[Rfam]
RNA sequence: UCACCCGGAAACCCGGAUCGCGCGAGGACGGGGGACCCAUGUGUGCCGGCGCUUCGCCGGCUGGGGGUGAAGUCGCCACCGCGACAGGGCCAACCUGACGGCCCCAACCCGACAGCUAACCCCGCAGGCGCUCGUCAGGAAGGGAU
Numbered sequence: 001u002c003a004c005c006c007g008g009a010a011a012c013c014c015g016g017a018u019c020g021c022g023c024g025a026g027g028a029c030g031g032g033g034g035a036c037c038c039a040u041g042u043g044u045g046c047c048g049g050c051g052c053u054u055c056g057c058c059g060g061c062u063g064g065g066g067g068u069g070a071a072g073u074c075g076c077c078a079c080c081g082c083g084a085c086a087g088g089g090c091c092a093a094c095c096u097g098a099c100g101g102c103c104c105c106a107a108c109c110c111g112a113c114a115g116c117u118a119a120c121c122c123c124g125c126a127g128g129c130g131c132u133c134g135u136c137a138g139g140a141a142g143g144g145a146u
Base pairs, nucleotide, nucleotide: 004027005026029124030123031122032121033120038064065110066109067108073084074083075082076081087104088103089102090101
RNA: c-di-AMP riboswitch aptamer (ydaO/yuaA leader)
Organism: Intrasporangium calvum